[Rfam]
RNA sequence: UUGCACUUCGCAAUCAUAUAAGCUUCGCUAAAUUCUCAAGUUAGUGCAGUCUUACAGCGUUAGUGCGUAUAGGAAAAGCUGAAUUUAUCAGCGGCGGCCAGACAACCGUUGAGAUGAAUCCACAGAUGGGUUUCGUUUUUGCUCCUGUCUACUAAUUUCUUCUCACAUUU
Number, nucleotide and partner (000 for none) at each position: 001u000002u067003g066004c065005a064006c063007u000008u000009c059010g058011c057012a000013a000014u000015c000016a000017u000018a000019u054020a053021a000022g050023c049024u048025u000026c046027g045028c044029u043030a042031a000032a000033u000034u000035c000036u000037c000038a000039a000040g000041u000042u030043a029044g028045u027046g026047c000048a024049g023050u022051c000052u000053u020054a019055c000056a000057g011058c010059g009060u000061u000062a000063g006064u005065g004066c003067g002068u000069a000070u000071a000072g000073g000074a000075a000076a000077a000078g000079c000080u000081g000082a000083a000084u000085u000086u000087a000088u000089c000090a000091g000092c000093g000094g000095c000096g000097g000098c000099c000100a000101g000102a000103c000104a000105a000106c000107c000108g000109u000110u000111g164112a163113g162114a161115u000116g159117a158118a157119u000120c000121c000122a000123c000124a000125g000126a000127u000128g000129g146130g145131u000132u000133u000134c000135g000136u000137u000138u000139u000140u000141g000142c000143u000144c000145c130146u129147g000148u000149c000150u000151a000152c000153u000154a000155a000156u000157u118158u117159c116160u000161u114162c113163u112164c111165a000166c000167a000168u000169u000170u000
RNA: small nucleolar RNA snoR143
Organism: Solanum lycopersicum